The record is a 142-nucleotide RNA sequence from Citrus sinensis, which matches "MIR828 microRNA precursor family" in Rfam. Pairs were carried over by alignment from the consensus structure, which was predicted with RNAalifold. The literature on the family includes a 2006 paper in Genes Dev by Rajagopalan et al., "A diverse and evolutionarily fluid set of microRNAs in Arabidopsis thaliana".
RNA sequence: GUAAUGUUUCUUGCUCAAAUGAGUAUUCCAAAAACAGCUGAAUCUUGCACAUAUUUCAUUUAUAAGAAAACAAGAUAUUCUCAUAUUCCUCUUCAUUGAUGCUUCUGUUGGCUGAGAUACUCAUUUGAGCUAGAAGUAUUAU
Numbered sequence: 001g002u003a004a005u006g007u008u009u010c011u012u013g014c015u016c017a018a019a020u021g022a023g024u025a026u027u028c029c030a031a032a033a034a035c036a037g038c039u040g041a042a043u044c045u046u047g048c049a050c051a052u053a054u055u056u057c058a059u060u061u062a063u064a065a066g067a068a069a070a071c072a073a074g075a076u077a078u079u080c081u082c083a084u085a086u087u088c089c090u091c092u093u094c095a096u097u098g099a100u101g102c103u104u105c106u107g108u109u110g111g112c113u114g115a116g117a118u119a120c121u122c123a124u125u126u127g128a129g130c131u132a133g134a135a136g137u138a139u140u141a142u
Base pairs, nucleotide, nucleotide: 004139005138006137007136008135010133011132013130014129015128016127017126018125019124020123021122022121023120024119025118026117027116029114030113